[Rfam]
RNA sequence: AAUUCAUUAUCGCUGAAUUUCCUUAAGGAAAACGGGGGACCCGUUAAAAACUUACCUGCCUUUCAGGUGAGUUUCUCUUUUGGGGUGAAUCUUGGCAGUUGAUCCAGCGAUCCGCCAGGUAGGGCGACUCUUGCCGCCCGAAUCCGACAGCUAACCUCGUAAGCGUAGUCAGGAGUGGGU
Dot-bracket structure: ..........((((...(((........)))((((((....((.....................................))(((.....((((((.................))))))..((((..........))))...))).........)))))).))))...............
Numbered sequence: 001a002a003u004u005c006a007u008u009a010u011c012g013c014u015g016a017a018u019u020u021c022c023u024u025a026a027g028g029a030a031a032a033c034g035g036g037g038g039a040c041c042c043g044u045u046a047a048a049a050a051c052u053u054a055c056c057u058g059c060c061u062u063u064c065a066g067g068u069g070a071g072u073u074u075c076u077c078u079u080u081u082g083g084g085g086u087g088a089a090u091c092u093u094g095g096c097a098g099u100u101g102a103u104c105c106a107g108c109g110a111u112c113c114g115c116c117a118g119g120u121a122g123g124g125c126g127a128c129u130c131u132u133g134c135c136g137c138c139c140g141a142a143u144c145c146g147a148c149a150g151c152u153a154a155c156c157u158c159g160u161a162a163g164c165g166u167a168g169u170c171a172g173g174a175g176u177g178g179g180u
Stems, first nucleotide, its partner, number of pairs: 011165004018031003032160006042082002083145003091119006122139004